A member of the RNA family "Mammalian CPEB3 ribozyme" from Microcaecilia unicolor, 78 nucleotides long.

[Rfam]
Nucleotides: 078
Stems, first nucleotide, its partner, number of pairs: 014045004021078007028040001050067002053064002056061001
Number, partner (000 for none) and nucleotide at each position: 001000a002000u003000u004000c005000c006000a007000g008000c009000u010000c011000c012000a013000c014045g015044g016043g017042c018000c019000a020000u021078a022077g023076c024075a025074g026073a027072a028040g029000c030000a031000u032000u033000u034000a035000a036000a037000u038000c039000a040028c041000a042017g043016c044015c045014u046000c047000u048000c049000u050067c051066a052000u053064a054063u055000u056061c057000c058000u059000a060000u061056g062000u063054a064053u065000c066051u067050g068000u069000g070000a071000a072027u073026u074025c075024u076023g077022c078021u
Taxonomically the source falls in Microcaecilia (Eukaryota, Sarcopterygii, Amphibia, Gymnophiona). The literature on the family includes a 2006 paper in Science by Salehi-Ashtiani et al., "A genomewide search for ribozymes reveals an HDV-like sequence in the human CPEB3 gene".